[Rfam]
Shown here is a 190-nucleotide RNA from Streptomyces sp. DvalAA-14, a member of the family "c-di-AMP riboswitch aptamer (ydaO/yuaA leader)".
RNA sequence: ACCCGUACAUCGCCGAGUCCCCGCGAGGGGAGCCGGGGACCCAACCCUCCUGCCGCCGCAUCGGCCGCGCCGGAGGGGUUCCGUCCCAUGGGGUGAAUCGGGGACACCCGCCGAGGCCGGCGGAUGCCCCGUAGGAGACCUUCCUGCUCCGAACCCGUCAGCUAACCCGGUAGGCGAGAAGGAAGGAAAG
Numbered sequence: 001a002c003c004c005g006u007a008c009a010u011c012g013c014c015g016a017g018u019c020c021c022c023g024c025g026a027g028g029g030g031a032g033c034c035g036g037g038g039a040c041c042c043a044a045c046c047c048u049c050c051u052g053c054c055g056c057c058g059c060a061u062c063g064g065c066c067g068c069g070c071c072g073g074a075g076g077g078g079u080u081c082c083g084u085c086c087c088a089u090g091g092g093g094u095g096a097a098u099c100g101g102g103g104a105c106a107c108c109c110g111c112c113g114a115g116g117c118c119g120g121c122g123g124a125u126g127c128c129c130c131g132u133a134g135g136a137g138a139c140c141u142u143c144c145u146g147c148u149c150c151g152a153a154c155c156c157g158u159c160a161g162c163u164a165a166c167c168c169g170g171u172a173g174g175c176g177a178g179a180a181g182g183a184a185g186g187a188a189a190g
Stems, first nucleotide, its partner, number of pairs: 011176004018031005032171006042090002091156003099131004134150004

Rfam links the family to the GO terms cyclic-di-AMP binding and regulation of gene expression. Taxonomically the source falls in Streptomyces (Bacteria, Actinomycetota, Kitasatosporales, Streptomycetaceae). From the family's description: This family represents a conserved RNA structure found upstream of the ydaO and yuaA genes in Bacillus subtilis and related genes in other bacteria. The ydaO/yuaA element is thought to act as a genetic 'off' switch for the ydaO and yuaA genes in its native state. It is believed that the element may be triggered during osmotic shock leading to activation of ydaO, a predicted amino acid transporter gene, and members of the yuaA-yubG operon which code for KtrA and KtrB K+ transporters.